This 77-nucleotide sequence from Alligator mississippiensis belongs to the Rfam family "Mammalian CPEB3 ribozyme". The base pairs follow the family's consensus structure, which is taken from published work.
[Rfam]
RNA sequence: GGUUACAAGUUUGAGGCCAUAGCAUAAGUAUUCAUGGCACAGCCCUCUCAGAUUCCAACAAAUCUGUGAAUUCUGCU
Numbered sequence: 001g002g003u004u005a006c007a008a009g010u011u012u013g014a015g016g017c018c019a020u021a022g023c024a025u026a027a028g029u030a031u032u033c034a035u036g037g038c039a040c041a042g043c044c045c046u047c048u049c050a051g052a053u054u055c056c057a058a059c060a061a062a063u064c065u066g067u068g069a070a071u072u073c074u075g076c077u
Stems, first nucleotide, its partner, number of pairs: 013045001015044003021077004026072002028040002049066006